[Rfam]
RNA sequence: CCGAGUCCCGACGCACUCCCCCCCGGCGCCGGGACUCUCCCAGAGCCGGACCCCGGCGCCUCCCCCCCCUGGCGCCGGAGUCCGACUCUCCC
Numbered sequence: 001c002c003g004a005g006u007c008c009c010g011a012c013g014c015a016c017u018c019c020c021c022c023c024c025g026g027c028g029c030c031g032g033g034a035c036u037c038u039c040c041c042a043g044a045g046c047c048g049g050a051c052c053c054c055g056g057c058g059c060c061u062c063c064c065c066c067c068c069c070u071g072g073c074g075c076c077g078g079a080g081u082c083c084g085a086c087u088c089u090c091c092c
Stems, first nucleotide, its partner, number of pairs: 005035006012028003043088003047084005054077007
Shown here is a 92-nucleotide sequence from Streptomyces fructofermentans, a member of the family "Streptomyces RNA 3202".
The match comes from Rfam's covariance-model search (62 bits).
From the family's description: Identified by deep sequencing of transcriptome at the end of exponential growth phase.